[Rfam]
The family of this 385-nucleotide RNA from Paremcibacter congregatus is "Bacterial RNase P class A".
RNA sequence: UCAGAUGGCCGGAUGGCUGCUGCCGUCUUCGGGCGGGAGAGGAAAGUCCGGGCACCACGGAAGAACGGUGCCGGUUAACGACCGGCGAGGGCGACCUCAGGGAUAGUGCCACAGAAAGCAAACCGCCUGAUUUAUCAGGUAAGGGUGAAAGGGUGCGGUAAGAGCGCACCGCUCCGCUGGUAACAGGGGAGGCAGGGUAAACCCCACCGGGUGCAAAAUCAAAUAGGAACGACCGCCCUGGCGACAGGGCAGCUCUUCUUCCGGAGCGUCGUUCGGGUAGAUUGCACGAGCGGGCUGGCAACAGUCCGCCUAGAUGAAUGGUCAUCCAUUGGGACCGCUUCGGCGAUCUCGAGGACAUAACCCGGCUUACAGGCCAUCUGAAUAU
Dot-bracket structure: ((((((((((((((((((.((.(((((....))))).))....[[[.[[[[[((((.....[[..((((((((((.....)))))(((((....)))).)((...(((((............((((((((....))))))..)).......((((((.......))))))(((((.(((....))).)))).)..)))..)))))))))))))...((((......((((((...................(((((..]]..))))).)))))).....))))......((((((((....))))))))..........)))))))..................................]]]]]]]].).))))))))))....
Numbered sequence: 001u002c003a004g005a006u007g008g009c010c011g012g013a014u015g016g017c018u019g020c021u022g023c024c025g026u027c028u029u030c031g032g033g034c035g036g037g038a039g040a041g042g043a044a045a046g047u048c049c050g051g052g053c054a055c056c057a058c059g060g061a062a063g064a065a066c067g068g069u070g071c072c073g074g075u076u077a078a079c080g081a082c083c084g085g086c087g088a089g090g091g092c093g094a095c096c097u098c099a100g101g102g103a104u105a106g107u108g109c110c111a112c113a114g115a116a117a118g119c120a121a122a123c124c125g126c127c128u129g130a131u132u133u134a135u136c137a138g139g140u141a142a143g144g145g146u147g148a149a150a151g152g153g154u155g156c157g158g159u160a161a162g163a164g165c166g167c168a169c170c171g172c173u174c175c176g177c178u179g180g181u182a183a184c185a186g187g188g189g190a191g192g193c194a195g196g197g198u199a200a201a202c203c204c205c206a207c208c209g210g211g212u213g214c215a216a217a218a219u220c221a222a223a224u225a226g227g228a229a230c231g232a233c234c235g236c237c238c239u240g241g242c243g244a245c246a247g248g249g250c251a252g253c254u255c256u257u258c259u260u261c262c263g264g265a266g267c268g269u270c271g272u273u274c275g276g277g278u279a280g281a282u283u284g285c286a287c288g289a290g291c292g293g294g295c296u297g298g299c300a301a302c303a304g305u306c307c308g309c310c311u312a313g314a315u316g317a318a319u320g321g322u323c324a325u326c327c328a329u330u331g332g333g334a335c336c337g338c339u340u341c342g343g344c345g346a347u348c349u350c351g352a353g354g355a356c357a358u359a360a361c362c363c364g365g366c367u368u369a370c371a372g373g374c375c376a377u378c379u380g381a382a383u384a385u
Stems, first nucleotide, its partner, number of pairs: 001381010011370001012326007020039002023036005044368003048365005053213004062260002066209005071085005086100001087098004101204002106202002108198003123144002125140006152170006171193001172191004177186003217283004227274006252267005290309008